[Rfam]
RNA sequence: CUGAGUGAGUGUUUGCAACCGCAUGAUUUGCUUUCAGCAACACAUGAGGAAAGUCCGGGCUCCAUAGGGCAAAAGGCUGGGUAAUACCCAGCGAGGGCGACCUCGGGAAAGUGCCACAGAGACUAAACCGCCUGUUUAUGACAGGUAAGGGUGCAAAGGUGGGGUAAGAGCCCACCGUGCGGAGGGCGACCGAAGCAGCAGGGUAAACCCCCUUUGGAGCAAGGCCGAAUAGGAAGGCGAUGACGGUGCCCCCCGAGCCUUCGGGUAGGCCGCUUGAGAUAUUGAGUAAUCAAUAUCCUUAGAUAAAUGGUUGCACCAGGACAGAACCCGGCUUAUGGUUCACUCAGGCGU
Dot-bracket structure: (((((((((((..(((((((.((((..(((.......)))..))))....[[[.[[[[[((((...[[...((((((((((.....)))))(((((....)))))((...(((((............(((((((((...)))))))..)).......((((((.......))))))((((...((....))...))).)..)))..)))))))))))))...((((......((((((.....(((..]]..))).)))))).....))))......((((((((....))))))))...........)))))))...........]]]]]]]].).))))))))))....
RNA: Bacterial RNase P class A
Organism: Candidatus Psychracetigena formicireducens